[Rfam]
RNA sequence: GGGUGAAGUCUACUGAACCCUUAUCAUCCGUAGGCACUCGGCCAUGCUGUGGGUCUUAAAGCCUUAGACGUUAAUCGUCAGGGGUGUGGUGAUGAGGUAGGGUUAGAUGCCCU
Numbered sequence: 001g002g003g004u005g006a007a008g009u010c011u012a013c014u015g016a017a018c019c020c021u022u023a024u025c026a027u028c029c030g031u032a033g034g035c036a037c038u039c040g041g042c043c044a045u046g047c048u049g050u051g052g053g054u055c056u057u058a059a060a061g062c063c064u065u066a067g068a069c070g071u072u073a074a075u076c077g078u079c080a081g082g083g084g085u086g087u088g089g090u091g092a093u094g095a096g097g098u099a100g101g102g103u104u105a106g107a108u109g110c111c112c113u
Base pairs, nucleotide, nucleotide: 001020002019003018004017008035009034010033011032012031013030037096038095039094040093041090042089043088044087045086046085047084048083051064052063053062054061067079068078069077070076099113100112101111102110103109
Shown here is a 113-nucleotide sequence from Paenibacillus sambharensis, a member of the family "epsC RNA". The organism belongs to Paenibacillus, within Bacteria. The family's consensus secondary structure is taken from published work.